[Rfam]
Nucleotides: 121
Base pairs, nucleotide, nucleotide: 002061003060004059005058006057015048016047017046018045019042021040022039023038024037025036090120091119097115098114100112101111103110104109
Number, partner (000 for none) and nucleotide at each position: 001000u002061g003060g004059a005058g006057g007000a008000c009000u010000g011000a012000g013000a014000a015048g016047g017046u018045a019042g020000g021040a022039c023038a024037g025036u026000u027000a028000a029000a030000c031000u032000u033000c034000a035000u036025g037024c038023u039022g040021u041000a042019u043000c044000u045018u046017a047016c048015u049000g050000g051000u052000u053000a054000u055000a056000g057006c058005c059004u060003c061002c062000a063000a064000a065000a066000u067000u068000a069000u070000a071000a072000u073000a074000g075000u076000g077000c078000a079000a080000u081000g082000g083000c084000a085000a086000c087000u088000c089000a090120u091119g092000u093000u094000c095000c096000c097115c098114u099000c100112u101111u102000u103110c104109u105000a106000u107000g108000a109104g110103g111101g112100a113000c114098a115097g116000c117000a118000g119091u120090a121000c
Small nucleolar RNA SNORA47: a 121-nucleotide RNA sequence from Columbina picui. The match comes from Rfam's covariance-model search (79 bits). For this family Rfam cites "RNomics: an experimental approach that identifies 201 candidates for novel, small, non-messenger RNAs in mouse" (Huttenhofer et al., EMBO J, 2001). The organism belongs to Columbina, within Eukaryota. By type it is an H/ACA-box small nucleolar RNA. The base pairs follow the family's consensus structure, which was predicted with WAR.